[Rfam]
The record is an 89-nucleotide sequence from Ectothiorhodospiraceae bacterium WFHF3C12, which matches "t44 RNA" in Rfam. Rfam's curators write: This family consists of a number of bacterial RNA genes of between 135 and 170 bases in length. The t44 gene has been identified in several species of enteric bacteria but homologs have also been identified in Pseudomonas and Coxiella species. The t44 gene is found between the map and rpsB genes in all species in the full alignment apart from Shigella flexneri. The function of this RNA is unknown. It is annotated as a small RNA. Lineage of the source: Bacteria > Pseudomonadati > Pseudomonadota > Chromatiales > Ectothiorhodospiraceae.

RNA sequence: GGGGUGAAACGCAAAUUCCACACAUGCACCGACACGUGCGGCCGGGUGCCCUUCGGGGUUGCCGCAUGCGGGUGCAUGGAGGCCCCAAC
Numbered sequence: 001g002g003g004g005u006g007a008a009a010c011g012c013a014a015a016u017u018c019c020a021c022a023c024a025u026g027c028a029c030c031g032a033c034a035c036g037u038g039c040g041g042c043c044g045g046g047u048g049c050c051c052u053u054c055g056g057g058g059u060u061g062c063c064g065c066a067u068g069c070g071g072g073u074g075c076a077u078g079g080a081g082g083c084c085c086c087a088a089c
Base pairs, nucleotide, nucleotide: 023078024077025076026075027074028073029072030071035068036067037066038065039064040063041062042061048059049058050057051056